[Rfam]
RNA sequence: CGAACCCGCCGGCUUGGGAGAGCUGAACGGUUCAGGAAGACCCGCUGGACGCCGCCUUGGGAGAGGCACCGAAAGCGGUAUUCGUUAAAAGGGGAGAUCGACCGGUGGAGAAUGCGCUUCUCAUCGGAUUGUCGCGGCAGAUGGUGCUGG
Numbered sequence: 001c002g003a004a005c006c007c008g009c010c011g012g013c014u015u016g017g018g019a020g021a022g023c024u025g026a027a028c029g030g031u032u033c034a035g036g037a038a039g040a041c042c043c044g045c046u047g048g049a050c051g052c053c054g055c056c057u058u059g060g061g062a063g064a065g066g067c068a069c070c071g072a073a074a075g076c077g078g079u080a081u082u083c084g085u086u087a088a089a090a091g092g093g094g095a096g097a098u099c100g101a102c103c104g105g106u107g108g109a110g111a112a113u114g115c116g117c118u119u120c121u122c123a124u125c126g127g128a129u130u131g132u133c134g135c136g137g138c139a140g141a142u143g144g145u146g147c148u149g150g
Base pairs, nucleotide, nucleotide: 002033003032004031006030007029008028010025011024012023013022014021015020042078043077044076045075054067055066056065057064058063102127103126104125105124106123108122109121110120111119112118
Rfam assigns this 150-nucleotide RNA from Bradyrhizobium sp. BTAi1 to the family "flg-Rhizobiales RNA". It is annotated as a cis-regulatory element. It is one of the family's seed sequences. Lineage of the source: Bacteria > Pseudomonadati > Alphaproteobacteria > Hyphomicrobiales > Bradyrhizobium. The base pairs follow the family's consensus structure, which is taken from published work.